[Rfam]
RNA sequence: GCAGUUUCCCGGCCCUGCCGCUGGCUCUCUUGCGAGGGCGAGAGGAAAGUCCGGGCAACGCAGAGCGCUCCACUUCCGAAAAUAGAAGCUAUUGGUGACAGUAGGGGAAAGUAGAAGAAAAUAACCACCAUGAUACUAUAUGUUGUUUUGACAGCGUAUGUGUCGGGAAAGGGUGAGAAGGUAGUGUAAGAGACUACCAGUCGGCGGGUGAUCGUCGAGCUGUACUUCCUGGAGGUUGCAAGUUCAUGUAAACCGUCGUCUGAAAGCUGCUCGCUUGAUGUCUUUGACAACGGCGGAGGGUAGAAUGCUUGAGCUGUGAGGUGACUUGCAGACUAGAUAAAUGACAGGGCUCCACUUGUGGAUACAGAACCCGGCUUAUCAGGAAACUGCCUUU
Numbered sequence: 001g002c003a004g005u006u007u008c009c010c011g012g013c014c015c016u017g018c019c020g021c022u023g024g025c026u027c028u029c030u031u032g033c034g035a036g037g038g039c040g041a042g043a044g045g046a047a048a049g050u051c052c053g054g055g056c057a058a059c060g061c062a063g064a065g066c067g068c069u070c071c072a073c074u075u076c077c078g079a080a081a082a083u084a085g086a087a088g089c090u091a092u093u094g095g096u097g098a099c100a101g102u103a104g105g106g107g108a109a110a111g112u113a114g115a116a117g118a119a120a121a122u123a124a125c126c127a128c129c130a131u132g133a134u135a136c137u138a139u140a141u142g143u144u145g146u147u148u149u150g151a152c153a154g155c156g157u158a159u160g161u162g163u164c165g166g167g168a169a170a171g172g173g174u175g176a177g178a179a180g181g182u183a184g185u186g187u188a189a190g191a192g193a194c195u196a197c198c199a200g201u202c203g204g205c206g207g208g209u210g211a212u213c214g215u216c217g218a219g220c221u222g223u224a225c226u227u228c229c230u231g232g233a234g235g236u237u238g239c240a241a242g243u244u245c246a247u248g249u250a251a252a253c254c255g256u257c258g259u260c261u262g263a264a265a266g267c268u269g270c271u272c273g274c275u276u277g278a279u280g281u282c283u284u285u286g287a288c289a290a291c292g293g294c295g296g297a298g299g300g301u302a303g304a305a306u307g308c309u310u311g312a313g314c315u316g317u318g319a320g321g322u323g324a325c326u327u328g329c330a331g332a333c334u335a336g337a338u339a340a341a342u343g344a345c346a347g348g349g350c351u352c353c354a355c356u357u358g359u360g361g362a363u364a365c366a367g368a369a370c371c372c373g374g375c376u377u378a379u380c381a382g383g384a385a386a387c388u389g390c391c392u393u394u
Stems, first nucleotide, its partner, number of pairs: 001390009011379001013349005019343001021042002024039006047377003051374005056238004063284003068234005073088004089105001093101001106229002111225003125172002128167002131165006180198006200220001201218007242306004253296005276289002279286001314331007
Description: The family of this 394-nucleotide RNA sequence from Prevotella sp. CAG:474 is "Bacterial RNase P class A". Lineage of the source: Bacteria > Pseudomonadati > Bacteroidota > Bacteroidia > Prevotella. Ribonuclease P (RNase P) is a ubiquitous endoribonuclease, found in archaea, bacteria and eukarya as well as chloroplasts and mitochondria. Pairs were carried over by alignment from the consensus structure, which is taken from published work.